[Rfam]
RNA sequence: CCGUGGGUCGACCCGCCGCCGAGGACCCGGCGGGUCGGGGGAGCCGUCGCCUUCAUCCCCGCGGGCGGCGGAUCAGUCCGGGAGGGCAUGCGGAUGCCCUCCCGGGCCUUG
Numbered sequence: 001c002c003g004u005g006g007g008u009c010g011a012c013c014c015g016c017c018g019c020c021g022a023g024g025a026c027c028c029g030g031c032g033g034g035u036c037g038g039g040g041g042a043g044c045c046g047u048c049g050c051c052u053u054c055a056u057c058c059c060c061g062c063g064g065g066c067g068g069c070g071g072a073u074c075a076g077u078c079c080g081g082g083a084g085g086g087c088a089u090g091c092g093g094a095u096g097c098c099c100u101c102c103c104g105g106g107c108c109u110u111g
Stems, first nucleotide, its partner, number of pairs: 002111001006074003009037010044071009054061001075110001076107014
RNA: Streptomyces RNA 4115